[Rfam]
RNA sequence: AUGAUCCGAGGAGACGCUGAUCCGCCGGGGCACGCGCGGUCACGAGAACCCGGCGGGGAGUCAAUCGUGAGACCGGCCUCUACGG
Numbered sequence: 001a002u003g004a005u006c007c008g009a010g011g012a013g014a015c016g017c018u019g020a021u022c023c024g025c026c027g028g029g030g031c032a033c034g035c036g037c038g039g040u041c042a043c044g045a046g047a048a049c050c051c052g053g054c055g056g057g058g059a060g061u062c063a064a065u066c067g068u069g070a071g072a073c074c075g076g077c078c079u080c081u082a083c084g085g
Base pairs, nucleotide, nucleotide: 002084003083008080009079010078011077013062014061015060022056023055024054025053026052027051028050029049038074039073040070041069042068043067044066

Shown here is an 85-nucleotide RNA, a member of the family "c-di-GMP-II-GAG riboswitch aptamer". Rfam's curators put it in the seed alignment. Its family is annotated with regulation of gene expression and cyclic-di-GMP binding in the Gene Ontology. The family is grouped with related families in Rfam's "c-di-GMP_II riboswitch clan". Pairs were carried over by alignment from the consensus structure, which is taken from published work.